This 84-nucleotide RNA from Hipposideros armiger belongs to the Rfam family "mir-548 microRNA precursor family".
RNA sequence: UGUUAGGUUGGUGCAAAAGUAAUAGCGGUUUUUGCCUUUACGAGUAAUGGCAAAAGCCGCUAUUACUUUUGCACCAGCCUAAUA
Number, nucleotide and partner (000 for none) at each position: 001u084002g083003u082004u081005a080006g079007g078008u077009u076010g075011g074012u073013g072014c071015a070016a069017a068018a067019g066020u065021a064022a063023u062024a061025g060026c059027g058028g057029u056030u055031u054032u053033u052034g051035c050036c049037u000038u047039u046040a045041c000042g000043a000044g000045u040046a039047a038048u000049g036050g035051c034052a033053a032054a031055a030056g029057c028058c027059g026060c025061u024062a023063u022064u021065a020066c019067u018068u017069u016070u015071g014072c013073a012074c011075c010076a009077g008078c007079c006080u005081a004082a003083u002084a001
The family's consensus secondary structure was predicted with WAR. Rfam links the family to the GO terms miRNA-mediated post-transcriptional gene silencing and RISC complex. A search with the family's covariance model found it, with a score of 94 bits. Lineage of the source: Eukaryota > Chordata > Vertebrata > Gnathostomata > Hipposideros.